[Rfam]
RNA sequence: GUCGUGGGACGACCCAUGCUCACUGCUGAUGACUGGGGACGGCCCCC
Number, nucleotide and partner (000 for none) at each position: 001g020002u000003c018004g017005u016006g015007g014008g013009a000010c000011g000012a000013c008014c007015c006016a005017u004018g003019c000020u001021c000022a000023c000024u000025g000026c000027u000028g000029a000030u000031g000032a000033c000034u000035g046036g045037g044038g043039a000040c000041g000042g000043c038044c037045c036046c035047c000
The family of this 47-nucleotide RNA from Diaporthe helianthi is "Guanidine-II riboswitch aptamer (mini-ykkC)". Lineage of the source: Eukaryota > Opisthokonta > Fungi > Ascomycota > Diaporthe. The family's consensus secondary structure is taken from published work. Rfam links the family to the GO term regulation of gene expression.